[Rfam]
RNA sequence: UCCCCUGUGGCUUAGUUGGCUAAAGCGUCCGACUGUUAUUCAUAGACAAUCGGGAGAUCGGAAGUUCGAGCCUUUCCGGGGGAG
Numbered sequence: 001u002c003c004c005c006u007g008u009g010g011c012u013u014a015g016u017u018g019g020c021u022a023a024a025g026c027g028u029c030c031g032a033c034u035g036u037u038a039u040u041c042a043u044a045g046a047c048a049a050u051c052g053g054g055a056g057a058u059c060g061g062a063a064g065u066u067c068g069a070g071c072c073u074u075u076c077c078g079g080g081g082g083a084g
Base pairs, nucleotide, nucleotide: 001083002082003081004080005079006078007077010026011025012024013023028054029053030052031051032050060076061075062074063073064072
The family of this 84-nucleotide RNA sequence from Fusarium langsethiae is "tRNA".
The family's consensus secondary structure is taken from published work.
From the family's description: Transfer RNA (tRNA) molecules are approximately 80 nucleotides in length.
The source organism's lineage runs through Eukaryota, Fungi, Hypocreomycetidae, Nectriaceae and Fusarium sambucinum species complex.